[Rfam]
RNA sequence: UCAUGGCAGUUCCUCUUACUGCUUAGAGCCUUAGGUAGUGGGAAUUUGGUCCAUUAUAUAUUUAAGCUAACUUGUCUUCACUCCCAGCACCAUGAGGAUGAAGUGGCUGUUCAUUUGUGCCUUCCAAUUUUUGCAGAGUCAAAUAACU
Numbered sequence: 001u002c003a004u005g006g007c008a009g010u011u012c013c014u015c016u017u018a019c020u021g022c023u024u025a026g027a028g029c030c031u032u033a034g035g036u037a038g039u040g041g042g043a044a045u046u047u048g049g050u051c052c053a054u055u056a057u058a059u060a061u062u063u064a065a066g067c068u069a070a071c072u073u074g075u076c077u078u079c080a081c082u083c084c085c086a087g088c089a090c091c092a093u094g095a096g097g098a099u100g101a102a103g104u105g106g107c108u109g110u111u112c113a114u115u116u117g118u119g120c121c122u123u124c125c126a127a128u129u130u131u132u133g134c135a136g137a138g139u140c141a142a143a144u145a146a147c148u
Base pairs, nucleotide, nucleotide: 001056003054004053005052006051014043015042016041017040018039020037021036022035023034070139071138072137073136082127086123087120088119089118090117096112097111098110099109100108